[Rfam]
RNA sequence: UCUUCAUUUCCCACACUAUCUCGCCGUAUCUGACCGGCGAGAGAGCGUGGGAAAUGGAGAGA
Number, nucleotide and partner (000 for none) at each position: 001u060002c059003u058004u057005c056006a055007u054008u000009u000010c051011c000012c049013a048014c047015a000016c045017u044018a000019u042020c041021u040022c039023g000024c000025c000026g000027u000028a000029u000030c000031u000032g000033a000034c000035c000036g000037g000038c000039g022040a021041g020042a019043g000044a017045g016046c000047g014048u013049g012050g000051g010052a000053a000054a007055u006056g005057g004058a003059g002060a001061g000062a000
A member of the RNA family "mir-8364 microRNA precursor family" from Pristionchus pacificus, 62 nucleotides long. Taxonomically the source falls in Pristionchus (Eukaryota, Protostomia, Ecdysozoa, Rhabditina). Its family is annotated with miRNA-mediated post-transcriptional gene silencing and RISC complex in the Gene Ontology.